[Rfam]
RNA sequence: GUCUUUAUGGGGCAAACCCGUGCGAAAGCCGGGGACGCAAAGUUUCCGAUCUAAGUGCUUGAAUCAGUUUUAGCUGAGUCAAGGACGAUGAUAGCGGGGCUGCCGGA
Numbered sequence: 001g002u003c004u005u006u007a008u009g010g011g012g013c014a015a016a017c018c019c020g021u022g023c024g025a026a027a028g029c030c031g032g033g034g035a036c037g038c039a040a041a042g043u044u045u046c047c048g049a050u051c052u053a054a055g056u057g058c059u060u061g062a063a064u065c066a067g068u069u070u071u072a073g074c075u076g077a078g079u080c081a082a083g084g085a086c087g088a089u090g091a092u093a094g095c096g097g098g099g100c101u102g103c104c105g106g107a
Base pairs, nucleotide, nucleotide: 012038013037017033018032019031020030022029023028041101042100043099044098046097047096048095049092050091051090